[Rfam]
RNA sequence: AACAAGAAAAGGCAAACCCGUACGAAAGUCGGGGACGCAAAGCCAUGGGUCUAAAGCCGCAGGGAGACUAUGAUCGCCAGGCUGCCGUC
Numbered sequence: 001a002a003c004a005a006g007a008a009a010a011g012g013c014a015a016a017c018c019c020g021u022a023c024g025a026a027a028g029u030c031g032g033g034g035a036c037g038c039a040a041a042g043c044c045a046u047g048g049g050u051c052u053a054a055a056g057c058c059g060c061a062g063g064g065a066g067a068c069u070a071u072g073a074u075c076g077c078c079a080g081g082c083u084g085c086c087g088u089c
Stems, first nucleotide, its partner, number of pairs: 012038002017033004022029002041083004046079003049074003056068001058066001
Rfam assigns this 89-nucleotide RNA sequence from Pelotomaculum schinkii to the family "c-di-GMP-I riboswitch aptamer". Taxonomically the source falls in Pelotomaculum (Bacteria, Bacillati, Bacillota, Desulfotomaculaceae).